[Rfam]
The family of this 135-nucleotide RNA sequence from Rhodnius prolixus is "U4atac minor spliceosomal RNA". Gene Ontology terms of the family: U4atac snRNP, mRNA 5'-splice site recognition and spliceosomal tri-snRNP complex assembly. The source organism's lineage runs through Eukaryota, Arthropoda, Allotriocarida, Cimicomorpha and Rhodnius. Pairs were carried over by alignment from the consensus structure, which is taken from published work. Rfam classes the family as a spliceosomal small nuclear RNA. U4atac is an essential component of the minor U12-type spliceosome complex which is required for removal of the rarer class of eukaryotic introns (AT-AC, U12-type).
RNA sequence: ACCAUCCAUGUCUUGGGGAGCAAAAUGUCCAAUGAUCGUUAAGUGAGGGCAUUGAUGCUGACACCAUUUAAAUUACUAUUUAUAUUUUAAUCUCUAGUGUAACUGAAGAACAGUUUAGCUGAUAUUUUUAGAAUA
Number, nucleotide and partner (000 for none) at each position: 001a000002c000003c000004a000005u019006c018007c017008a000009u015010g000011u000012c000013u000014u000015g009016g000017g007018g006019a005020g058021c057022a056023a000024a053025a052026u051027g050028u049029c048030c047031a000032a000033u000034g000035a000036u000037c043038g000039u000040u000041a000042a000043g037044u000045g000046a000047g030048g029049g028050c027051a026052u025053u024054g000055a000056u022057g021058c020059u000060g000061a000062c000063a000064c000065c000066a000067u000068u000069u000070a000071a000072a000073u000074u000075a000076c000077u000078a000079u000080u000081u000082a000083u000084a000085u000086u000087u000088u122089a000090a120091u000092c118093u117094c113095u112096a000097g111098u110099g000100u108101a000102a000103c000104u000105g000106a000107a000108g100109a000110a098111c097112a095113g094114u000115u000116u000117a093118g092119c000120u090121g000122a088123u000124a000125u000126u000127u000128u000129u000130a000131g000132a000133a000134u000135a000